[Rfam]
This 66-nucleotide sequence from Lepisosteus oculatus belongs to the Rfam family "MAT2A 3'UTR stem loop F".
By type it is a cis-regulatory element.
The match comes from Rfam's covariance-model search (53 bits).
The base pairs follow the family's consensus structure, which is taken from published work.
RNA sequence: GACGAGAGAGGCAGAUUUUGGCCGGUGUUGUACAGAGAAGCCGGCUUGUUUACCUGCUCUCUUGUU
Numbered sequence: 001g002a003c004g005a006g007a008g009a010g011g012c013a014g015a016u017u018u019u020g021g022c023c024g025g026u027g028u029u030g031u032a033c034a035g036a037g038a039a040g041c042c043g044g045c046u047u048g049u050u051u052a053c054c055u056g057c058u059c060u061c062u063u064g065u066u
Stems, first nucleotide, its partner, number of pairs: 001066006008059002011057002014050003020046007027033002